Shown here is a 100-nucleotide RNA from Paenibacillus sp. GSMTC-2017, a member of the family "Purine riboswitch aptamer". Pairs were carried over by alignment from the consensus structure, which is taken from published work. It scores 71 bits against the family's covariance model.

RNA sequence: UUAAUUGAAUAUUCAGCCUUUCGUAUAUCUUUAACAAUUGGGUUAAAGGUCUCUACUUAGAAACCGUAAAUUUCUAGCUACGAAAAAAAAUGUGCUAUCA
Numbered sequence: 001u002u003a004a005u006u007g008a009a010u011a012u013u014c015a016g017c018c019u020u021u022c023g024u025a026u027a028u029c030u031u032u033a034a035c036a037a038u039u040g041g042g043u044u045a046a047a048g049g050u051c052u053c054u055a056c057u058u059a060g061a062a063a064c065c066g067u068a069a070a071u072u073u074c075u076a077g078c079u080a081c082g083a084a085a086a087a088a089a090a091u092g093u094g095c096u097a098u099c100a
Stems, first nucleotide, its partner, number of pairs: 019085007029048007057077007